[Rfam]
Nucleotides: 135
Stems, first nucleotide, its partner, number of pairs: 003133007010125001017029003031114002033103002035049004044101002053078002083099005105117003
Number, partner (000 for none) and nucleotide at each position: 001000a002000a003133u004132c005131g006130u007129g008128c009127u010125c011000c012000g013000g014000g015000g016000u017029c018028g019027g020000u021000g022000a023000a024000a025000g026000u027019c028018c029017g030000a031114a032113c033103c034102g035049g036048c037047g038046g039000u040000u041000a042000u043000a044101g045100u046038c047037c048036g049035c050000g051000a052000c053078c054077c055000g056000c057000c058000a059000g060000a061000c062000c063000u064000u065000c066000a067000u068000c069000g070000g071000u072000c073000u074000g075000c076000c077054g078053g079000u080000u081000g082000a083099g084098c085097c086096g087095g088000u089000g090000a091000a092000a093000u094000u095087c096086c097085g098084g099083c100045a101044c102034c103033g104000a105117c106116a107115g108000u109000u110000a111000a112000a113032g114031u115107c116106u117105g118000g119000a120000u121000g122000g123000g124000a125010g126000a127009a128008g129007c130006a131005c132004g133003a134000a135000c
A member of the RNA family "FMN riboswitch aptamer (RFN element)" from Arthrobacter woluwensis, 135 nucleotides long. The match comes from Rfam's covariance-model search (103 bits). Lineage of the source: Bacteria > Actinomycetes > Micrococcales > Micrococcaceae > Arthrobacter. The family's consensus secondary structure is taken from published work.